Rfam assigns this 96-nucleotide RNA sequence from Nicotiana sylvestris to the family "MIR6152 microRNA precursor family". Taxonomically the source falls in Nicotiana (Eukaryota, Spermatophyta, Magnoliopsida, Nicotianeae). Pairs were carried over by alignment from the consensus structure, which was predicted with RNAalifold. Its family is annotated with miRNA-mediated post-transcriptional gene silencing and RISC complex in the Gene Ontology.
RNA sequence: UGGACAGAUUAUUGUAUUCGACUGUAUUCACGGCGUGAAACAGGUGAUUGCAUUAUUUUUUAACGGAAAAUGAAUCAAUUAACAUAAUCGACUCCU
Number, nucleotide and partner (000 for none) at each position: 001u000002g095003g094004a093005c000006a000007g000008a000009u090010u000011a088012u087013u086014g085015u084016a000017u082018u081019c000020g080021a079022c000023u077024g076025u000026a075027u074028u073029c072030a071031c000032g000033g000034c065035g064036u063037g059038a058039a057040a056041c000042a054043g053044g000045u000046g000047a000048u000049u000050g000051c000052a000053u043054u042055a000056u040057u039058u038059u037060u000061u000062a000063a036064c035065g034066g000067a000068a000069a000070a000071u030072g029073a028074a027075u026076c024077a023078a000079u021080u020081a018082a017083c000084a015085u014086a013087a012088u011089c000090g009091a000092c000093u004094c003095c002096u000
Rfam 15.1 lists 5,807 matches to the family in 3 species.